Rfam assigns this 104-nucleotide RNA from Pedobacter yulinensis to the family "SAM riboswitch aptamer (S box leader)".
Rfam describes the family as follows. The SAM riboswitch is found upstream of a number of genes which code for proteins involved in methionine or cysteine biosynthesis in Gram-positive bacteria. The SAM riboswitch acts at the level of transcription termination control.
The base pairs follow the family's consensus structure, which is taken from published work.
The organism belongs to Pedobacter, within Bacteria.
The match comes from Rfam's covariance-model search (71 bits).
[Rfam]
RNA sequence: CGCUUAUUAAGAAAGAUGGAGGGAUUAGACCCUGCGAAGUCUUAGCAACCUGUGCCAACAAGGUGCUAAAUUCUAUCCUGGUUAGUGCCUGGAAAAGAUAAGUA
Numbered sequence: 001c002g003c004u005u006a007u008u009a010a011g012a013a014a015g016a017u018g019g020a021g022g023g024a025u026u027a028g029a030c031c032c033u034g035c036g037a038a039g040u041c042u043u044a045g046c047a048a049c050c051u052g053u054g055c056c057a058a059c060a061a062g063g064u065g066c067u068a069a070a071u072u073c074u075a076u077c078c079u080g081g082u083u084a085g086u087g088c089c090u091g092g093a094a095a096a097g098a099u100a101a102g103u104a
Stems, first nucleotide, its partner, number of pairs: 002103007013043005021032003026075004044067004049063002051060003071096001076093003080089002